The record is a 146-nucleotide RNA sequence from Cucurbita maxima, which matches "Small nucleolar RNA snoR136" in Rfam.
Lineage of the source: Eukaryota > eudicotyledons > rosids > Cucurbitaceae > Cucurbita.
The family has 8 seed sequences and 452 matches in Rfam 15.1.
RNA sequence: UUGGCCUCACUUUUUUUAAAACUGGAAAUCUAUCUAGCUUUCUAUUCGAUGAAGCAGGAUCCAUUUGUGAGGCCUAAAUCUAUGUUCUCCUCGCUAUCCAGAGUUUCACAUUACAUGAUCCAUUUGGACGUCGGAGAACUACAUUU
Dot-bracket structure: (((((..(((.........(...((......((((.(((((.........))))).))))))..).)))..))).))......(((((((.((...(((((....(((.......))).....)))))))..))))))).......